[Rfam]
This 224-nucleotide RNA sequence from Streptomyces aurantiacus belongs to the Rfam family "Streptomyces sRNA 4677".
RNA sequence: GGGUUCGGUGGGCCGCUGACCUCCUCAAAGAACCGGGGGAAAGAACUACCCGCCCACCCACCCUCCCCGGCCGGCAGGCCCGCGUCACCCGUCCGAGUGACCGGCUUGCAGGAGCGGGAUUCGGGCGGUUACGUUCACCGCGACAACCGCAAACAAAUACGGCCCCCGGCCGGGACGGCAAUCCCGAACGAGGGCCUGACCAACCAGGAAGUAGCACCUUCCCG
Numbered sequence: 001g002g003g004u005u006c007g008g009u010g011g012g013c014c015g016c017u018g019a020c021c022u023c024c025u026c027a028a029a030g031a032a033c034c035g036g037g038g039g040a041a042a043g044a045a046c047u048a049c050c051c052g053c054c055c056a057c058c059c060a061c062c063c064u065c066c067c068c069g070g071c072c073g074g075c076a077g078g079c080c081c082g083c084g085u086c087a088c089c090c091g092u093c094c095g096a097g098u099g100a101c102c103g104g105c106u107u108g109c110a111g112g113a114g115c116g117g118g119a120u121u122c123g124g125g126c127g128g129u130u131a132c133g134u135u136c137a138c139c140g141c142g143a144c145a146a147c148c149g150c151a152a153a154c155a156a157a158u159a160c161g162g163c164c165c166c167c168g169g170c171c172g173g174g175a176c177g178g179c180a181a182u183c184c185c186g187a188a189c190g191a192g193g194g195c196c197u198g199a200c201c202a203a204c205c206a207g208g209a210a211g212u213a214g215c216a217c218c219u220u221c222c223c224g
Stems, first nucleotide, its partner, number of pairs: 007204001009202002015071004085100004090095001114139001117136002161196005167190002172185004207222005
The pairing is the family consensus, mapped onto this sequence.
Lineage of the source: Bacteria > Actinomycetota > Kitasatosporales > Streptomycetaceae > Streptomyces.